[Rfam]
RNA sequence: UGGAGGACUGAGAAGGUAAGACAGCUAUACUUCAUGCUGUAUCUUACUGGUUAUAGCCUCCAAAAUUAUAAUAGUGCAAUGGCAGCUCAUGUUCUCCUCUUGACUUGAGGGAAAAACAGUACUGCAUUUGCACAUAAGGC
Numbered sequence: 001u002g003g004a005g006g007a008c009u010g011a012g013a014a015g016g017u018a019a020g021a022c023a024g025c026u027a028u029a030c031u032u033c034a035u036g037c038u039g040u041a042u043c044u045u046a047c048u049g050g051u052u053a054u055a056g057c058c059u060c061c062a063a064a065a066u067u068a069u070a071a072u073a074g075u076g077c078a079a080u081g082g083c084a085g086c087u088c089a090u091g092u093u094c095u096c097c098u099c100u101u102g103a104c105u106u107g108a109g110g111g112a113a114a115a116a117c118a119g120u121a122c123u124g125c126a127u128u129u130g131c132a133c134a135u136a137a138g139g140c
Stems, first nucleotide, its partner, number of pairs: 002061005015048004019042001021040005082131002090124002097119002100116002
RNA: Small nucleolar RNA SNORA47